[Rfam]
RNA sequence: ACUACAAUUCGGCCUUUCAUUGGGACGUCUAGCUCGUACUUGAAACAGUUAGCUGCCUAGUGAAGGGCAAUAUUGUGGU
Numbered sequence: 001a002c003u004a005c006a007a008u009u010c011g012g013c014c015u016u017u018c019a020u021u022g023g024g025a026c027g028u029c030u031a032g033c034u035c036g037u038a039c040u041u042g043a044a045a046c047a048g049u050u051a052g053c054u055g056c057c058u059a060g061u062g063a064a065g066g067g068c069a070a071u072a073u074u075g076u077g078g079u
Stems, first nucleotide, its partner, number of pairs: 004076005012068004017063004023057002029052005
Overview: Rfam assigns this 79-nucleotide RNA from Culex quinquefasciatus to the family "mir-980 microRNA precursor family". The organism belongs to Culex pipiens complex, within Eukaryota. The family's consensus secondary structure was predicted with RNAalifold.